Background:
The family of this 51-nucleotide RNA from Oscillatoria sp. FACHB-1407 is "Nitrogen stress-induced RNA 1". The literature on the family includes a 2010 paper in J Mol Biol by Ionescu et al., "Heterocyst-specific transcription of NsiR1, a non-coding RNA encoded in a tandem array of direct repeats in cyanobacteria". The family has 17 seed sequences and 962 matches in Rfam 15.1.
RNA sequence: UGGUAGAUGCACCCUGAUUACAGCCUCCGGUUCACCCCGGAGGUUUUUUGU
Numbered sequence: 001u002g003g004u005a006g007a008u009g010c011a012c013c014c015u016g017a018u019u020a021c022a023g024c025c026u027c028c029g030g031u032u033c034a035c036c037c038c039g040g041a042g043g044u045u046u047u048u049u050g051u
Base pairs, nucleotide, nucleotide: 002013003012004011024043025042026041027040028039029038030037
Dot-bracket structure: .(((......)))..........(((((((......)))))))........
The match comes from Rfam's covariance-model search (49 bits).
The organism belongs to Oscillatoria, within Bacteria.
By type it is a small RNA.